[Rfam]
Record summary
The family of this 374-nucleotide sequence from Liquorilactobacillus cacaonum is "Bacterial RNase P class B". On this family, see Brown, Nucleic Acids Res 1999: "The Ribonuclease P Database".
RNA sequence: GUUUUCUGGUAAUCGCGGUCUACCUUGAGUAGGCUGAGGAAAGUCCAAGCUUGCACAGACUGAGAUGUCUGUAGUGAUCGUGCUUGCUGAAAAAAUAAGGCAAGGUACCUUUAUGGGUAACGGCAGAUAAAAAGGCUAAGGUUUAGUGCUAUGUCUGAGUAGUCUUGAAAGUGCCACAGUGACGAAGCAAUAUUGGAAACGAUAUUGAUGGAACGCGGUAAACCCCACGAGCAGGUAACCCAAACUUUGGUAGGGGCGCUUCAUGACGGAAAUGAACAAAUCAUGGGGGCAGAUAGGUGACUAUCUGGAGAUAGAUGAUUACCACCGAUUCCAAUUACCUGUAUUGGAUGACGUACGGAACGUGGCUUAUAGAG
Number, nucleotide and partner (000 for none) at each position: 001g000002u000003u000004u374005u373006c372007u000008g323009g322010u321011a320012a319013u318014c317015g000016c036017g035018g034019u033020c032021u031022a000023c000024c000025u000026u000027g000028a000029g000030u000031a021032g020033g019034c018035u017036g016037a000038g000039g000040a000041a368042a367043g366044u000045c365046c364047a363048a000049g361050c235051u234052u233053g232054c231055a072056c071057a070058g069059a068060c067061u000062g000063a000064g000065a000066u000067g060068u059069c058070u057071g056072u055073a000074g000075u000076g000077a000078u230079c229080g228081u227082g226083c104084u103085u102086g101087c100088u099089g000090a000091a000092a000093a000094a000095a000096u000097a000098a000099g088100g087101c086102a085103a084104g083105g121106u119107a118108c117109c116110u115111u000112u000113a000114u000115g110116g109117g108118u107119a106120a000121c105122g225123g224124c000125a165126g164127a163128u162129a000130a000131a000132a000133a156134g155135g154136c153137u000138a000139a000140g150141g149142u148143u000144u000145a000146g000147u000148g142149c141150u140151a000152u000153g136154u135155c134156u133157g000158a000159g000160u000161a000162g128163u127164c126165u125166u000167g000168a000169a000170a000171g223172u222173g219174c218175c217176a000177c000178a000179g000180u000181g000182a000183c000184g000185a000186a000187g000188c207189a206190a205191u204192a203193u202194u201195g200196g000197a000198a000199a000200c195201g194202a193203u192204a191205u190206u189207g188208a000209u000210g000211g000212a000213a000214c000215g000216c000217g175218g174219u173220a000221a000222a172223c171224c123225c122226c082227a081228c080229g079230a078231g054232c053233a052234g051235g050236u000237a000238a000239c255240c254241c253242a000243a000244a000245c000246u000247u000248u000249g000250g000251u000252a000253g241254g240255g239256g000257c000258g000259c288260u287261u286262c285263a284264u283265g282266a000267c000268g000269g000270a000271a000272a000273u000274g000275a000276a000277c000278a000279a000280a000281u000282c265283a264284u263285g262286g261287g260288g259289g000290c307291a306292g305293a304294u303295a302296g301297g000298u000299g000300a000301c296302u295303a294304u293305c292306u291307g290308g000309a000310g000311a000312u000313a000314g000315a000316u000317g014318a013319u012320u011321a010322c009323c008324a000325c353326c000327g000328a000329u000330u348331c347332c346333a345334a344335u343336u000337a000338c000339c000340u000341g000342u000343a335344u334345u333346g332347g331348a330349u000350g000351a000352c000353g325354u000355a000356c000357g000358g000359a000360a000361c049362g000363u047364g046365g045366c043367u042368u041369a000370u000371a000372g006373a005374g004

The family is grouped with related families in Rfam's "RNaseP clan". NCBI's taxonomy places the organism under Bacteria, Bacillati, Bacilli, Liquorilactobacillus, Liquorilactobacillus cacaonum. It scores 312 bits against the family's covariance model. About the family: Ribonuclease P (RNase P) is a ubiquitous endoribonuclease, found in archaea, bacteria and eukarya as well as chloroplasts and mitochondria.